[Rfam]
This 96-nucleotide sequence from Ipomoea nil belongs to the Rfam family "Small nucleolar RNA Z43". It scores 82 bits against the family's covariance model.
RNA sequence: GGACUGUGAUGAUUAAUGAUUUGGUCUCGUUCGUCAGAAUUGUGUUGAACCACAUUGACGACCAUCCUGAUAUAUCACCACCCAUAAACUGAGUCC
Number, nucleotide and partner (000 for none) at each position: 001g096002g095003a094004c093005u000006g000007u000008g000009a000010u000011g000012a000013u000014u000015a000016a000017u000018g000019a000020u000021u000022u000023g000024g000025u000026c000027u000028c000029g000030u000031u000032c000033g000034u000035c000036a000037g000038a000039a000040u000041u000042g000043u000044g056045u000046u054047g000048a000049a000050c000051c000052a000053c000054a046055u000056u044057g000058a000059c000060g000061a000062c000063c000064a000065u000066c000067c000068u000069g000070a000071u000072a000073u000074a000075u000076c000077a000078c000079c000080a000081c000082c000083c000084a000085u000086a000087a000088a000089c000090u000091g000092a000093g004094u003095c002096c001
Gene Ontology terms of the family: nucleolus and RNA processing. Lineage of the source: Eukaryota > Streptophytina > Mesangiospermae > lamiids > Ipomoea.